[Rfam]
RNA sequence: GCGUCGAACGUCUCCUCCCAUUCGUUUGACGCGUUCCCCUCUGGAGGUUUUAACCUUCAUGAUUGGCCGGGCUUAACAGCCCGGCCUCCUUUU
Numbered sequence: 001g002c003g004u005c006g007a008a009c010g011u012c013u014c015c016u017c018c019c020a021u022u023c024g025u026u027u028g029a030c031g032c033g034u035u036c037c038c039c040u041c042u043g044g045a046g047g048u049u050u051u052a053a054c055c056u057u058c059a060u061g062a063u064u065g066g067c068c069g070g071g072c073u074u075a076a077c078a079g080c081c082c083g084g085c086c087u088c089c090u091u092u093u
Base pairs, nucleotide, nucleotide: 001032002031003030004029005028007026008025009024042059043058044057045056046055047054048053065086066085067084068083069082070081071080072079

This 93-nucleotide sequence from Mesorhizobium sp. Root172 belongs to the Rfam family "Alphaproteobacterial ar15". By type it is a small RNA. A reference for the family is Wilms et al. (2011), "Small RNA-mediated control of the Agrobacterium tumefaciens GABA binding protein", Mol Microbiol. Taxonomically the source falls in Mesorhizobium (Bacteria, Pseudomonadati, Pseudomonadota, Hyphomicrobiales).